[Rfam]
RNA sequence: UGGUGCCCAAUGUGGGGCCUGGAUACUGGGGACAGAGUGAGGGAGAUGACUUAGAAGAAGGGGUGCGCACCAGCUACAUCUCAAGUAGUUCGGAGACACUGCGGGAGGCUGCCGCGACCAAGCCGAAGGUGAGUCAGGUCGUCCAAUCAAAUCAUGGGGCAAGAAUUAAGUCAGCAUCAGAUUUAUGUGAUACAGUUAAGAGAAGCUCUACAGGCAAGAAGAGUAAAGGUUAAAACUGAGGAUUUAUUUCAUUUCUUUGAUUUUAUAAAGGACAUUUGUCCCU
Numbered sequence: 001u002g003g004u005g006c007c008c009a010a011u012g013u014g015g016g017g018c019c020u021g022g023a024u025a026c027u028g029g030g031g032a033c034a035g036a037g038u039g040a041g042g043g044a045g046a047u048g049a050c051u052u053a054g055a056a057g058a059a060g061g062g063g064u065g066c067g068c069a070c071c072a073g074c075u076a077c078a079u080c081u082c083a084a085g086u087a088g089u090u091c092g093g094a095g096a097c098a099c100u101g102c103g104g105g106a107g108g109c110u111g112c113c114g115c116g117a118c119c120a121a122g123c124c125g126a127a128g129g130u131g132a133g134u135c136a137g138g139u140c141g142u143c144c145a146a147u148c149a150a151a152u153c154a155u156g157g158g159g160c161a162a163g164a165a166u167u168a169a170g171u172c173a174g175c176a177u178c179a180g181a182u183u184u185a186u187g188u189g190a191u192a193c194a195g196u197u198a199a200g201a202g203a204a205g206c207u208c209u210a211c212a213g214g215c216a217a218g219a220a221g222a223g224u225a226a227a228g229g230u231u232a233a234a235a236c237u238g239a240g241g242a243u244u245u246a247u248u249u250c251a252u253u254u255c256u257u258u259g260a261u262u263u264u265a266u267a268a269a270g271g272a273c274a275u276u277u278g279u280c281c282c283u
Base pairs, nucleotide, nucleotide: 006031007030008029012026013025014024037047038046086131087130089127090126097122100116101115102114103113104112140159142158143157144156145155167210168209170206171205218258219257220256221255222254223253227245228244229243230242231241268283270281271280272279273278
Shown here is a 283-nucleotide RNA sequence from Nannospalax galili, a member of the family "Mason-Pfizer monkey virus packaging signal". The source organism's lineage runs through Eukaryota, Tetrapoda, Amniota, Mammalia and Nannospalax.